[Rfam]
Nucleotides: 066
Base pairs, nucleotide, nucleotide: 001066002065003064004063005062006061007060008059009058010057011056013054015053016052017051021043022042023041024040025039027037028036029035
Number, partner (000 for none) and nucleotide at each position: 001066g002065c003064c004063a005062c006061c007060c008059u009058g010057c011056g012000a013054c014000c015053g016052c017051c018000g019000a020000a021043g022042c023041c024040u025039u026000a027037c028036g029035c030000u031000c032000u033000a034000u035029g036028c037027g038000c039025g040024g041023g042022g043021u044000u045000g046000a047000u048000g049000u050000a051017g052016g053015c054013g055000g056011c057010g058009u059008g060007g061006g062005g063004u064003g065002g066001c
Shown here is a 66-nucleotide sequence, a member of the family "DUF3800-VIII RNA". By type it is a small RNA. Rfam's curators write: Bacteroidetes, Cyanobacteria, Firmicutes, Planctomycetes (1 example), Proteobacteria, Tenericutes (1 example).